Rfam assigns this 93-nucleotide RNA from Paenibacillus xerothermodurans to the family "Selenocysteine transfer RNA". Gene Ontology term of the family: triplet codon-amino acid adaptor activity. The literature on the family includes a 2000 paper in FEBS Lett by Mizutani and Goto, "Eukaryotic selenocysteine tRNA has the 9/4 secondary structure". The family's consensus secondary structure is taken from published work. A search with the family's covariance model found it, with a score of 59 bits.

RNA sequence: GGGGCUGGCUGGGGUACUGGUGUCCCCCUUGGUCUUCAAAACCAUUUGGGAGGCGCGUGCCGUCUCUGGUGGGUUCGAUUCCCACACAGUCUC
Numbered sequence: 001g002g003g004g005c006u007g008g009c010u011g012g013g014g015u016a017c018u019g020g021u022g023u024c025c026c027c028c029u030u031g032g033u034c035u036u037c038a039a040a041a042c043c044a045u046u047u048g049g050g051a052g053g054c055g056c057g058u059g060c061c062g063u064c065u066c067u068g069g070u071g072g073g074u075u076c077g078a079u080u081c082c083c084a085c086a087c088a089g090u091c092u093c
Stems, first nucleotide, its partner, number of pairs: 001093007012027003016023002030044004049067005070084004